[Rfam]
RNA: Listeria sRNA rli48
RNA sequence: GACGUGAUAUACUUUUAUAGAGGGAGGGGAGUUUCACCCCUCUGGUUACUUGUCCUUGUUUUUGUCUAUCUUGCGUAAUGUUAUCAGCGCUACUGCAAGAGUUACAAUUUCAAGGACUGUUUUUAUUUCCUCUAAGAUGUCUUUCACU
Numbered sequence: 001g002a003c004g005u006g007a008u009a010u011a012c013u014u015u016u017a018u019a020g021a022g023g024g025a026g027g028g029g030a031g032u033u034u035c036a037c038c039c040c041u042c043u044g045g046u047u048a049c050u051u052g053u054c055c056u057u058g059u060u061u062u063u064g065u066c067u068a069u070c071u072u073g074c075g076u077a078a079u080g081u082u083a084u085c086a087g088c089g090c091u092a093c094u095g096c097a098a099g100a101g102u103u104a105c106a107a108u109u110u111c112a113a114g115g116a117c118u119g120u121u122u123u124u125a126u127u128u129c130c131u132c133u134a135a136g137a138u139g140u141c142u143u144u145c146a147c148u
Stems, first nucleotide, its partner, number of pairs: 004147004018134006024042006052117007062107004069100006075093003079089003